Overview: mir-16 microRNA precursor family: an 81-nucleotide RNA from Terrapene triunguis. A search with the family's covariance model found it, with a score of 44 bits.
RNA sequence: CACCACCAGCAGCAGCACAGAAGUAAGGGUGGCAAUACAUCAUACCAUGCCACCCUUAUUUCUGUGCUGCUGCUGGUGGUG
Numbered sequence: 001c002a003c004c005a006c007c008a009g010c011a012g013c014a015g016c017a018c019a020g021a022a023g024u025a026a027g028g029g030u031g032g033c034a035a036u037a038c039a040u041c042a043u044a045c046c047a048u049g050c051c052a053c054c055c056u057u058a059u060u061u062c063u064g065u066g067c068u069g070c071u072g073c074u075g076g077u078g079g080u081g
Stems, first nucleotide, its partner, number of pairs: 001081003005077003011071008020061001022060008
The literature on the family includes a 2002 paper in Proc Natl Acad Sci U S A by Calin et al., "Frequent deletions and down-regulation of micro- RNA genes miR15 and miR16 at 13q14 in chronic lymphocytic leukemia". Pairs were carried over by alignment from the consensus structure, which was predicted with PFOLD. Clan: mir-15 clan.